A member of the RNA family "mir-26 microRNA precursor family" from Bagarius yarrelli, 81 nucleotides long. Pairs were carried over by alignment from the consensus structure, which was predicted with RNAalifold. Rfam links the family to the GO terms RISC complex and miRNA-mediated post-transcriptional gene silencing. It scores 58 bits against the family's covariance model. Taxonomically the source falls in Bagarius (Eukaryota, Chordata, Craniata, Osteoglossocephalai). Rfam 15.1 lists 2,251 matches to the family in 645 species.

RNA sequence: CUGCCACCCAGUGCAAGUAAUCAUGAAUAGGCCAGCCAGGACAGACACAGCCUAUCCUGGAUUACUUGAACAGGGUAGCGG
Numbered sequence: 001c002u003g004c005c006a007c008c009c010a011g012u013g014c015a016a017g018u019a020a021u022c023a024u025g026a027a028u029a030g031g032c033c034a035g036c037c038a039g040g041a042c043a044g045a046c047a048c049a050g051c052c053u054a055u056c057c058u059g060g061a062u063u064a065c066u067u068g069a070a071c072a073g074g075g076u077a078g079c080g081g
Stems, first nucleotide, its partner, number of pairs: 002080003007075003011071002014068009025057001027055006